[Rfam]
RNA sequence: AGAGGGUCUUGAAAACCAGCAGUGAAGUAUGUUGUUUAAUGUGAUGAUCCGCACAACAUCUUACCACUCCUUGAAUGUUACACAGGCGUUGCAUGGCUGUCUUCAGUUCGUGUCGUGAGAUGUAAGGUUAAGUCCGCAAAACGAACAAAACCCUUGCAAUUAGUUAAUUUCUAAUUGAGCAUCCAGUGACAAACUGGAAUAAUUAGGACUAAGACAAGCCCUCAUGGCCCUUAUGGAGUGGGCUACAGACGUGCUGCUAGGAGGAAUACAAUAGGAUCCAAUAAGGUAACUUGGAGGUAAUCCUCAAAUUUCCUCUUUGUGGAUUGAGCUCUGUAACUCGAGCUCAUGAAUUAGGAAUUGCUAGUAAUCGUGAAUCAGCAUGUCACGGUGAAAUUAAAGCUUCAAGAUCUACUAACUGCCUAAACGAUGGGCAUCUAAUUAACGAUAAUUAGAUAAACAAACUAUAUG
Numbered sequence: 001a002g003a004g005g006g007u008c009u010u011g012a013a014a015a016c017c018a019g020c021a022g023u024g025a026a027g028u029a030u031g032u033u034g035u036u037u038a039a040u041g042u043g044a045u046g047a048u049c050c051g052c053a054c055a056a057c058a059u060c061u062u063a064c065c066a067c068u069c070c071u072u073g074a075a076u077g078u079u080a081c082a083c084a085g086g087c088g089u090u091g092c093a094u095g096g097c098u099g100u101c102u103u104c105a106g107u108u109c110g111u112g113u114c115g116u117g118a119g120a121u122g123u124a125a126g127g128u129u130a131a132g133u134c135c136g137c138a139a140a141a142c143g144a145a146c147a148a149a150a151c152c153c154u155u156g157c158a159a160u161u162a163g164u165u166a167a168u169u170u171c172u173a174a175u176u177g178a179g180c181a182u183c184c185a186g187u188g189a190c191a192a193a194c195u196g197g198a199a200u201a202a203u204u205a206g207g208a209c210u211a212a213g214a215c216a217a218g219c220c221c222u223c224a225u226g227g228c229c230c231u232u233a234u235g236g237a238g239u240g241g242g243c244u245a246c247a248g249a250c251g252u253g254c255u256g257c258u259a260g261g262a263g264g265a266a267u268a269c270a271a272u273a274g275g276a277u278c279c280a281a282u283a284a285g286g287u288a289a290c291u292u293g294g295a296g297g298u299a300a301u302c303c304u305c306a307a308a309u310u311u312c313c314u315c316u317u318u319g320u321g322g323a324u325u326g327a328g329c330u331c332u333g334u335a336a337c338u339c340g341a342g343c344u345c346a347u348g349a350a351u352u353a354g355g356a357a358u359u360g361c362u363a364g365u366a367a368u369c370g371u372g373a374a375u376c377a378g379c380a381u382g383u384c385a386c387g388g389u390g391a392a393a394u395u396a397a398a399g400c401u402u403c404a405a406g407a408u409c410u411a412c413u414a415a416c417u418g419c420c421u422a423a424a425c426g427a428u429g430g431g432c433a434u435c436u437a438a439u440u441a442a443c444g445a446u447a448a449u450u451a452g453a454u455a456a457a458c459a460a461a462c463u464a465u466a467u468g
Base pairs, nucleotide, nucleotide: 001413002412003410004409005408007407008406009405010404011403012402013401019361020360021359022358023357024257026255027254028253029252030251031250032249033248034246035245040055041054042053043052064241065240066239067238068237069236070235076082077081085230086229088228089227090226091225094224095223096219097218098217099215100214101213102212106146107145108144109143110142111141112121113120114119126135127134152207153206154205157177158176159175160174161173162172163171182198183197184196185195186194187193261315262314263313264312265311266310273304274303275302278297279296283292284291285290325346326345327344328343329342330341331340367389368388369387370386371385372384373383463468